Source information: A member of the RNA family "U7 small nuclear RNA" from Sapajus apella, 62 nucleotides long. The match comes from Rfam's covariance-model search (60 bits). Pairs were carried over by alignment from the consensus structure, which was predicted with PFOLD.
RNA sequence: GAAUGCUACAGCUCUUUUAGAAUUUGUCUAGCAGGAUUUCCUAUCUUUACUGGAAACCCCUC
Numbered sequence: 001g002a003a004u005g006c007u008a009c010a011g012c013u014c015u016u017u018u019a020g021a022a023u024u025u026g027u028c029u030a031g032c033a034g035g036a037u038u039u040c041c042u043a044u045c046u047u048u049a050c051u052g053g054a055a056a057c058c059c060c061u062c
Stems, first nucleotide, its partner, number of pairs: 034059002037056005044049001